[Rfam]
RNA sequence: CUGUCUCUUGUUUCAACAGUGUUUGGACGGGACAG
Numbered sequence: 001c002u003g004u005c006u007c008u009u010g011u012u013u014c015a016a017c018a019g020u021g022u023u024u025g026g027a028c029g030g031g032a033c034a035g
Stems, first nucleotide, its partner, number of pairs: 001035004006031003010028001012027005017021001

The family of this 35-nucleotide sequence from Myotis davidii is "Iron response element I". By type it is a cis-regulatory element. Lineage of the source: Eukaryota > Metazoa > Craniata > Amniota > Myotis. Rfam links the family to the GO term response to iron ion. The base pairs follow the family's consensus structure, which is taken from published work. On this family, see Walden et al., Science 2006: "Structure of dual function iron regulatory protein 1 complexed with ferritin IRE-RNA".